[Rfam]
This 102-nucleotide sequence from Clostridium estertheticum belongs to the Rfam family "Purine riboswitch aptamer".
RNA sequence: AAAAAAUUAUAUUCGCAAACUCAUAUAAGCUUAGAAAUAUGGUCUAAGCGUUUCUACCAAGUAACCGUAAAAGACUUGACUAUGGGUGUUUUGAUAAAUAAA
Dot-bracket structure: ..................(((((((...(((((((.......)))))))........(((((...........)))))..)))))))...............
Lineage of the source: Bacteria > Bacillota > Clostridia > Eubacteriales > Clostridium. The family's consensus secondary structure is taken from published work.